[Rfam]
RNA sequence: GGGCAGGAUAGGUGAAGUUGGCCAACCGUUUCACGGUUGCCAACUUCACAAUUCUUAUUCGCGCUUGCAGCGCUCAACGAACAUCCUGCCCUGCGGGACA
Numbered sequence: 001g002g003g004c005a006g007g008a009u010a011g012g013u014g015a016a017g018u019u020g021g022c023c024a025a026c027c028g029u030u031u032c033a034c035g036g037u038u039g040c041c042a043a044c045u046u047c048a049c050a051a052u053u054c055u056u057a058u059u060c061g062c063g064c065u066u067g068c069a070g071c072g073c074u075c076a077a078c079g080a081a082c083a084u085c086c087u088g089c090c091c092u093g094c095g096g097g098a099c100a
Stems, first nucleotide, its partner, number of pairs: 001091009012049006019042003024038006052081003061073005
RNA: traJ-II RNA